Notes:
The family of this 85-nucleotide RNA from Oryzias javanicus is "mir-142 microRNA precursor family". It scores 70 bits against the family's covariance model. Lineage of the source: Eukaryota > Actinopteri > Teleostei > Oryziinae > Oryzias. The literature on the family includes a 2010 paper in BMC Genomics by Linsen et al., "Small RNA expression and strain specificity in the rat".
RNA sequence: CAGUGUACUCAUCCAUAAAGUAGGAAACACUACACUGUAUAGUGAAGUUUAGUAGUGCUUUCUACUUUAUGGGUGACAACACUGU
Numbered sequence: 001c002a003g004u005g006u007a008c009u010c011a012u013c014c015a016u017a018a019a020g021u022a023g024g025a026a027a028c029a030c031u032a033c034a035c036u037g038u039a040u041a042g043u044g045a046a047g048u049u050u051a052g053u054a055g056u057g058c059u060u061u062c063u064a065c066u067u068u069a070u071g072g073g074u075g076a077c078a079a080c081a082c083u084g085u
Stems, first nucleotide, its partner, number of pairs: 014071010026059001028057006